[Rfam]
RNA sequence: CUCCCCGAAAUCUAUUUAGGUAGAGCCUCGGACGAAUACUUACGGGGGUAGAGCACUGUUUGGGCUAGGGGGCCAUCCCGGCUUACCAACCCCAUGCAAACUCCGAAUACCGUAAAGUAAUAUCCGGGAGACACACGGCGGGUGCUAACGUUCGUCGUGGAGAGGGAAACAACCCAGACCGCCAGCUAAGGUCCCAAAGUUCAUGUUAAGUGGGAAACGAUGUGGGAAGGCUUAGACAGCUAGGAGGUUGGCUUAGAAGCAGCCACCCUUUAAAGAAAGCGUAAUAGCUCACUAGUCGAGUCGGCCUGCGCGGAAGAUGUAACGGGGCUAAACAUGACACCGAAGCUGCGGCAGCGCAUUUAUGCGCUGGGUAGGGGAGCGUUCUGUAAGUGGUUGAAGGUGAGUUGAGAAGCUUGCUGGACAUAUCAGAAGUGCGAAU
Numbered sequence: 001c002u003c004c005c006c007g008a009a010a011u012c013u014a015u016u017u018a019g020g021u022a023g024a025g026c027c028u029c030g031g032a033c034g035a036a037u038a039c040u041u042a043c044g045g046g047g048g049u050a051g052a053g054c055a056c057u058g059u060u061u062g063g064g065c066u067a068g069g070g071g072g073c074c075a076u077c078c079c080g081g082c083u084u085a086c087c088a089a090c091c092c093c094a095u096g097c098a099a100a101c102u103c104c105g106a107a108u109a110c111c112g113u114a115a116a117g118u119a120a121u122a123u124c125c126g127g128g129a130g131a132c133a134c135a136c137g138g139c140g141g142g143u144g145c146u147a148a149c150g151u152u153c154g155u156c157g158u159g160g161a162g163a164g165g166g167a168a169a170c171a172a173c174c175c176a177g178a179c180c181g182c183c184a185g186c187u188a189a190g191g192u193c194c195c196a197a198a199g200u201u202c203a204u205g206u207u208a209a210g211u212g213g214g215a216a217a218c219g220a221u222g223u224g225g226g227a228a229g230g231c232u233u234a235g236a237c238a239g240c241u242a243g244g245a246g247g248u249u250g251g252c253u254u255a256g257a258a259g260c261a262g263c264c265a266c267c268c269u270u271u272a273a274a275g276a277a278a279g280c281g282u283a284a285u286a287g288c289u290c291a292c293u294a295g296u297c298g299a300g301u302c303g304g305c306c307u308g309c310g311c312g313g314a315a316g317a318u319g320u321a322a323c324g325g326g327g328c329u330a331a332a333c334a335u336g337a338c339a340c341c342g343a344a345g346c347u348g349c350g351g352c353a354g355c356g357c358a359u360u361u362a363u364g365c366g367c368u369g370g371g372u373a374g375g376g377g378a379g380c381g382u383u384c385u386g387u388a389a390g391u392g393g394u395u396g397a398a399g400g401u402g403a404g405u406u407g408a409g410a411a412g413c414u415u416g417c418u419g420g421a422c423a424u425a426u427c428a429g430a431a432g433u434g435c436g437a438a439u
Base pairs, nucleotide, nucleotide: 001379002378003377004376005375006374011024012023013022014021015020026130027128028127029126030125031124032123036121040115041114042113043112044111045110051104052102053101057098058097059096061094062093063092064091068087069086070084071083072082073081074080134159135158136157137156138155139154140153141152142151143150164175165174166173179351180350181349182348184347185346186345190341191340192339199338201337202336203335204334205333206332218312219311222309223308224307225306226305229302230301231300239296240295241294242293243292245269246268247267250264251263252262270274275290279288280287352369353368354367355366356365357364358363380434382431383430384429385428386427390424391423392422399418400417401416402415403414404413405412406411
Rfam assigns this 439-nucleotide part of an RNA from Psychrosphaera ytuae to the family "Bacterial large subunit ribosomal RNA".
The match comes from Rfam's covariance-model search (2860 bits).
The family's consensus secondary structure is taken from published work.